[Rfam]
RNA sequence: AUUCAGCCUGCUUGCCCUAACCAUGGCAAAUGAAGGUGUUUAACUGCUCGGAAAUAAAACAAUGCUUUUUGCUCUUCAGACUUGCUGAGAUUAUCCCUUGAAGCUGGUCUAGUAAGCCUAAGCACAUU
Numbered sequence: 001a002u003u004c005a006g007c008c009u010g011c012u013u014g015c016c017c018u019a020a021c022c023a024u025g026g027c028a029a030a031u032g033a034a035g036g037u038g039u040u041u042a043a044c045u046g047c048u049c050g051g052a053a054a055u056a057a058a059a060c061a062a063u064g065c066u067u068u069u070u071g072c073u074c075u076u077c078a079g080a081c082u083u084g085c086u087g088a089g090a091u092u093a094u095c096c097c098u099u100g101a102a103g104c105u106g107g108u109c110u111a112g113u114a115a116g117c118c119u120a121a122g123c124a125c126a127u128u
Stems, first nucleotide, its partner, number of pairs: 004038002007036002009033001012030002016026001066122003071117003078110005084104003089096001
RNA: Small nucleolar RNA snoR77
Organism: Hibiscus syriacus